[Rfam]
RNA: mir-33 microRNA precursor family
Organism: Sphaeramia orbicularis
RNA sequence: CUGUGGUGCAUUGUAGUUGCAUUGCAUGUAAGGUAAUCAAAGUGCAAUGUCCCUGCUUUGCAACCCAG
Number, nucleotide and partner (000 for none) at each position: 001c068002u067003g066004u000005g000006g064007u062008g061009c060010a059011u000012u000013g056014u055015a054016g053017u000018u000019g050020c000021a048022u047023u046024g045025c044026a043027u042028g000029u000030a000031a000032g000033g000034u000035a000036a000037u000038c000039a000040a000041a000042g027043u026044g025045c024046a023047a022048u021049g000050u019051c000052c000053c016054u015055g014056c013057u000058u000059u010060g009061c008062a007063a000064c006065c000066c003067a002068g001